[Rfam]
RNA sequence: UGUCUCCUCCACCCUCCUCUUUGGUGGAUUCUGCCCGGGUGCCGAAGGCACUCGGGCUUUUUUUU
Numbered sequence: 001u002g003u004c005u006c007c008u009c010c011a012c013c014c015u016c017c018u019c020u021u022u023g024g025u026g027g028a029u030u031c032u033g034c035c036c037g038g039g040u041g042c043c044g045a046a047g048g049c050a051c052u053c054g055g056g057c058u059u060u061u062u063u064u065u
Base pairs, nucleotide, nucleotide: 008028009027010026011025012024013023033057034056035055036054037053038052039051

The family of this 65-nucleotide RNA from Derxia gummosa is "Betaproteobacteria toxic small RNA".
The match comes from Rfam's covariance-model search (58 bits).
Rfam's curators write: Overexpression in amino aid rich medium attenuates growth, suggesting role in repressing amino acid intake and metabolism.
NCBI's taxonomy places the organism under Bacteria, Pseudomonadati, Burkholderiales, Alcaligenaceae, Derxia gummosa.
The family's consensus secondary structure was predicted with WAR.
The family has 51 seed sequences and 951 matches in Rfam 15.1.
On this family, see Kimelman et al., Genome Res 2012: "A vast collection of microbial genes that are toxic to bacteria".